[Rfam]
RNA sequence: UACUGGAGCGGGGAAGGAUUUCGUGCCAACGGCACUCGUACACGAGUUGUUCGGAUACUGAGCACAACGUUAUAUCGUUUUGUUAGGAAAGUGAAGGUGUGCCGGCGGUAGUCUCUCGGGGCUGCUGUCUGGCCGCAACUGAAAAGGGGCAACAGAGAACCUGGGAUCAUAUUCCAAAAAGAAAUUGCAUGUGGGAAACAACACUACAAAAAUGUAUUUUUGUGGAAAUGCGAAACACUUGCCAGGUGACCAAUCAAUCCUCCCACGGUGAGCUUUCUUUUCACCAUAAUCCACAUCUCCGGCUCUGCUGGGGCUUGGGCCUUUCUACUUCUCGCGUUGUUCGGAGAGGGGGCUCAAGAUUGAAAAAUGCAGCUCACCCUACGUACUGUCAUUGUUGUGAGUUCUGCGCAUUAAAGCAAAAACCUGGGGUGUUAUUGGAAAAAAGACGUUACUUCAAGAAAGCGGGGGUCAAACCUCGUUCUUUUGAUUUGACAUCACAAAAAUCAAAUCCCAACUGCAGACCGUACUCAUCACCGCAUCAGGUCCCCAAGCAUAAAAUGCUCUGGUACA
Numbered sequence: 001u002a003c004u005g006g007a008g009c010g011g012g013g014a015a016g017g018a019u020u021u022c023g024u025g026c027c028a029a030c031g032g033c034a035c036u037c038g039u040a041c042a043c044g045a046g047u048u049g050u051u052c053g054g055a056u057a058c059u060g061a062g063c064a065c066a067a068c069g070u071u072a073u074a075u076c077g078u079u080u081u082g083u084u085a086g087g088a089a090a091g092u093g094a095a096g097g098u099g100u101g102c103c104g105g106c107g108g109u110a111g112u113c114u115c116u117c118g119g120g121g122c123u124g125c126u127g128u129c130u131g132g133c134c135g136c137a138a139c140u141g142a143a144a145a146g147g148g149g150c151a152a153c154a155g156a157g158a159a160c161c162u163g164g165g166a167u168c169a170u171a172u173u174c175c176a177a178a179a180a181g182a183a184a185u186u187g188c189a190u191g192u193g194g195g196a197a198a199c200a201a202c203a204c205u206a207c208a209a210a211a212a213u214g215u216a217u218u219u220u221u222g223u224g225g226a227a228a229u230g231c232g233a234a235a236c237a238c239u240u241g242c243c244a245g246g247u248g249a250c251c252a253a254u255c256a257a258u259c260c261u262c263c264c265a266c267g268g269u270g271a272g273c274u275u276u277c278u279u280u281u282c283a284c285c286a287u288a289a290u291c292c293a294c295a296u297c298u299c300c301g302g303c304u305c306u307g308c309u310g311g312g313g314c315u316u317g318g319g320c321c322u323u324u325c326u327a328c329u330u331c332u333c334g335c336g337u338u339g340u341u342c343g344g345a346g347a348g349g350g351g352g353c354u355c356a357a358g359a360u361u362g363a364a365a366a367a368u369g370c371a372g373c374u375c376a377c378c379c380u381a382c383g384u385a386c387u388g389u390c391a392u393u394g395u396u397g398u399g400a401g402u403u404c405u406g407c408g409c410a411u412u413a414a415a416g417c418a419a420a421a422a423c424c425u426g427g428g429g430u431g432u433u434a435u436u437g438g439a440a441a442a443a444a445g446a447c448g449u450u451a452c453u454u455c456a457a458g459a460a461a462g463c464g465g466g467g468g469u470c471a472a473a474c475c476u477c478g479u480u481c482u483u484u485u486g487a488u489u490u491g492a493c494a495u496c497a498c499a500a501a502a503a504u505c506a507a508a509u510c511c512c513a514a515c516u517g518c519a520g521a522c523c524g525u526a527c528u529c530a531u532c533a534c535c536g537c538a539u540c541a542g543g544u545c546c547c548c549a550a551g552c553a554u555a556a557a558a559u560g561c562u563c564u565g566g567u568a569c570a
Stems, first nucleotide, its partner, number of pairs: 001568004010548004016528002021045005030038002052524003056156001058155001062150002064080001066078001068077002089140001161181002164175002185520004242427006251408001256403003260399001262397001265392001267285005290363002293360001301353001303351004307342001370388003375383001534543002550562004

Eukaryotic large subunit ribosomal RNA: a 570-nucleotide part of an RNA from Bodo saltans. Its Rfam clan is "LSU clan". Taxonomically the source falls in Bodo (Eukaryota, Discoba, Metakinetoplastina, Bodonidae). The match comes from Rfam's covariance-model search (2031 bits). The base pairs follow the family's consensus structure, which is taken from published work. The literature on the family includes a 2001 paper in Science by Yusupov et al., "Crystal structure of the ribosome at 5.5 A resolution".